RNA sequence: GAUGGCAGGCCCAUCGGAACCGCUAUAUAGGUGGAGGUUUCAAAUCACUCUGAGGUGCUGUAGUCAAAAGCUAUGGUACUGAGCGUCAGAGAAAAGGCUGUACAAAACAGUCAGGU
Number, nucleotide and partner (000 for none) at each position: 001g015002a014003u013004g012005g011006c000007a000008g000009g000010c000011c005012c004013a003014u002015c001016g041017g040018a039019a038020c037021c036022g000023c034024u033025a032026u031027a000028u000029a000030g000031g026032u025033g024034g023035a000036g021037g020038u019039u018040u017041c016042a000043a000044a000045u000046c115047a000048c091049u090050c089051u088052g087053a086054g080055g079056u000057g077058c076059u075060g000061u073062a072063g071064u070065c000066a000067a000068a000069a000070g064071c063072u062073a061074u000075g059076g058077u057078a000079c055080u054081g000082a000083g000084c000085g000086u053087c052088a051089g050090a049091g048092a000093a000094a000095a000096g112097g111098c110099u109100g108101u107102a000103c000104a000105a000106a000107a101108c100109a099110g098111u097112c096113a000114g000115g046116u000
RNA: Group II catalytic intron D1-D4-2